[Rfam]
Plastid-psbA-3 3UTR RNA: a 57-nucleotide RNA from Protea cynaroides. The family's consensus secondary structure was predicted with LocARNA. A reference for the family is Richter et al. (2023), "Retrograde signaling in plants: A critical review focusing on the GUN pathway and beyond", Plant Commun. Plastid psbA-3 is a non-coding RNA (ncRNA) present in plastids. Clan: Plastid-psbA 3UTR RNA clan.

RNA sequence: GGAGGAGCAAUACCAACCUCUUGAUAAAACAAGAUUUGCGGUAUUGCUCAUUCAUUU
Numbered sequence: 001g002g003a004g005g006a007g008c009a010a011u012a013c014c015a016a017c018c019u020c021u022u023g024a025u026a027a028a029a030c031a032a033g034a035u036u037u038g039c040g041g042u043a044u045u046g047c048u049c050a051u052u053c054a055u056u057u
Stems, first nucleotide, its partner, number of pairs: 001053003005049010019034005